[Rfam]
RNA sequence: CGAAGCAGACCAGAUGGCCGCCGUCCACCGUAGCCUUUGGCGAAGGUGGAGGGAGGAAAGUCCGGGCUCCACAGGGCAUGGUGCUGGAUAACGUCCAGCGAGGGUAACCUCAGGGAAAGUGCCACAGAGAGAAGUCCGCCCCCCACACCCUGGCGACAGGGUCCGCCGAAGCCUCGGCGAAGGCGGAAGGGGGGUAAGGGUGAAAGGGUGAGGUAAGAGCUCACCGGGUUCGGCGGCGACGCCGGAUGCCAGGUAAACCCCACCAGGAGCAAGACCAAAUAGGGAAGCGUUAAGGACGGCCCGUCCGUGCUUCCGGGUUGGUUGCUUGAGGGCGUCGGUAACGGCGCUCCUAGAUGAAUGACCAUCGCCCGUCUCCGGGUAACCGGCUGCGGGAACAGAACCCGGCUUACGGGCUGCUUCGGCCA
Number, nucleotide and partner (000 for none) at each position: 001c421002g420003a419004a418005g417006c416007a415008g414009a000010c413011c412012a000013g366014a365015u364016g363017g362018c000019c360020g000021c053022c052023g000024u050025c049026c048027a047028c046029c045030g000031u000032a000033g000034c000035c000036u000037u000038u000039g000040g000041c000042g000043a000044a000045g029046g028047u027048g026049g025050a024051g000052g022053g021054a000055g000056g000057a000058a408059a407060g406061u000062c405063c404064g403065g402066g401067c269068u268069c267070c266071a000072c000073a000074g302075g301076g300077c299078a000079u265080g264081g263082u262083g261084c098085u097086g096087g095088a094089u000090a000091a000092c000093g000094u088095c087096c086097a085098g084099c113100g111101a110102g109103g108104g000105u000106a000107a000108c103109c102110u101111c100112a000113g099114g260115g259116a000117a000118a000119g258120u257121g254122c253123c252124a000125c000126a000127g000128a000129g000130a000131g000132a000133a000134g000135u000136c199137c198138g195139c194140c193141c192142c191143c190144c189145a000146c000147a000148c000149c000150c000151u000152g000153g000154c000155g000156a000157c000158a000159g000160g000161g000162u000163c000164c000165g000166c000167c000168g000169a000170a000171g000172c000173c000174u000175c000176g000177g000178c000179g000180a000181a000182g000183g000184c000185g000186g000187a000188a000189g144190g143191g142192g141193g140194g139195u138196a000197a000198g137199g136200g000201u000202g000203a000204a000205a000206g000207g225208g224209u223210g222211a221212g220213g000214u000215a000216a000217g000218a000219g000220c212221u211222c210223a209224c208225c207226g000227g249228g247229u246230u245231c244232g243233g242234c241235g240236g000237c000238g000239a000240c235241g234242c233243c232244g231245g230246a229247u228248g000249c227250c000251a000252g123253g122254u121255a000256a000257a120258c119259c115260c114261c083262a082263c081264c080265a079266g070267g069268a068269g067270c000271a000272a000273g323274a322275c321276c320277a000278a000279a000280u000281a000282g000283g314284g313285a312286a311287g310288c309289g000290u000291u000292a000293a000294g306295g305296a304297c303298g000299g077300c076301c075302c074303g297304u296305c295306c294307g000308u000309g288310c287311u286312u285313c284314c283315g000316g000317g000318u000319u000320g276321g275322u274323u273324g000325c000326u000327u000328g000329a000330g349331g348332g347333c346334g345335u344336c343337g342338g000339u000340a000341a000342c337343g336344g335345c334346g333347c332348u331349c330350c000351u000352a000353g000354a000355u000356g000357a000358a000359u000360g019361a000362c017363c016364a015365u014366c013367g000368c000369c000370c000371g000372u000373c000374u000375c000376c000377g000378g000379g000380u000381a000382a000383c000384c000385g000386g000387c000388u000389g000390c000391g000392g000393g000394a000395a000396c000397a000398g000399a000400a000401c066402c065403c064404g063405g062406c060407u059408u058409a000410c000411g000412g011413g010414c008415u007416g006417c005418u004419u003420c002421g001422g000423c000424c000425a000
RNA: Bacterial RNase P class A